[Rfam]
RNA sequence: GUAGAUAUAGCUCAAUAGGUAGAGUGACUAUUUGUGACAUAGUGAGUCCUGGUUCGAUUCCAGGUUUUUACC
Numbered sequence: 001g002u003a004g005a006u007a008u009a010g011c012u013c014a015a016u017a018g019g020u021a022g023a024g025u026g027a028c029u030a031u032u033u034g035u036g037a038c039a040u041a042g043u044g045a046g047u048c049c050u051g052g053u054u055c056g057a058u059u060c061c062a063g064g065u066u067u068u069u070a071c072c
Stems, first nucleotide, its partner, number of pairs: 001071005007065001010025004027043005048064005